[Rfam]
RNA: FMN riboswitch aptamer (RFN element)
RNA sequence: GAUUGGCUUCGGGGCAGGGUGAUAUUCCCGACCGGCGGAAAAAGUCCGCAAACCGCGCACAAGCGGGAGAACUAGUGAGACUCUAGUACCGACAGUAUAGUCUGAUAGGAGAAGGCCAAG
Numbered sequence: 001g002a003u004u005g006g007c008u009u010c011g012g013g014g015c016a017g018g019g020u021g022a023u024a025u026u027c028c029c030g031a032c033c034g035g036c037g038g039a040a041a042a043a044g045u046c047c048g049c050a051a052a053c054c055g056c057g058c059a060c061a062a063g064c065g066g067g068a069g070a071a072c073u074a075g076u077g078a079g080a081c082u083c084u085a086g087u088a089c090c091g092a093c094a095g096u097a098u099a100g101u102c103u104g105a106u107a108g109g110a111g112a113a114g115g116c117c118a119a120g
Stems, first nucleotide, its partner, number of pairs: 003118001005116001007114004017029003031101002033091002035049004044089002053066002071087005093104003
Dot-bracket structure: ..(.(.((((......(((.......))).[[((((((.....[[))))...((..........))....(((((.......)))))]])).(((....]])))......)))).).)..